[Rfam]
RNA sequence: AACCACAUAUUCGAUGAAUGGAUUCACCCGUGAGAUGAAGUGGUUGUUUCACCUAAGAUGAAGACAUGGCAUCCUAUUACCAGCCAUCGCACGAAAUUAAUAGGAUACCACAUCCUCAUCCUAAAUGGAACAACCACGUCAUCUUACGGCUGAAUCCAUUCAUCAAUAGUGUAGUA
Numbered sequence: 001a002a003c004c005a006c007a008u009a010u011u012c013g014a015u016g017a018a019u020g021g022a023u024u025c026a027c028c029c030g031u032g033a034g035a036u037g038a039a040g041u042g043g044u045u046g047u048u049u050c051a052c053c054u055a056a057g058a059u060g061a062a063g064a065c066a067u068g069g070c071a072u073c074c075u076a077u078u079a080c081c082a083g084c085c086a087u088c089g090c091a092c093g094a095a096a097u098u099a100a101u102a103g104g105a106u107a108c109c110a111c112a113u114c115c116u117c118a119u120c121c122u123a124a125a126u127g128g129a130a131c132a133a134c135c136a137c138g139u140c141a142u143c144u145u146a147c148g149g150c151u152g153a154a155u156c157c158a159u160u161c162a163u164c165a166a167u168a169g170u171g172u173a174g175u176a
Stems, first nucleotide, its partner, number of pairs: 002175002005172003011166001013164003017160003021156006028149001030147004035142004041136008051126001054123002057120002063114002069108001071106009086097002

A member of the RNA family "MIR807 microRNA precursor family" from Oryza sativa, 176 nucleotides long. It is one of the family's seed sequences. On this family, see Luo et al., FEBS Lett 2006: "Rice embryogenic calli express a unique set of microRNAs, suggesting regulatory roles of microRNAs in plant post-embryogenic development". Rfam 15.1 lists 1,514 matches to the family in 13 species. Gene Ontology terms of the family: RISC complex and miRNA-mediated post-transcriptional gene silencing.